RNA sequence: UCAAGAAUUCAAGGCCAUAGCAGAAAUGUUCACAGUGUAGCCAUGUCAGAUUCCAACAAAUCUGCAAAUUCUGCU
Dot-bracket structure: ............[[[...((((((((((.......))).]]]....((((((......))))))....)))))))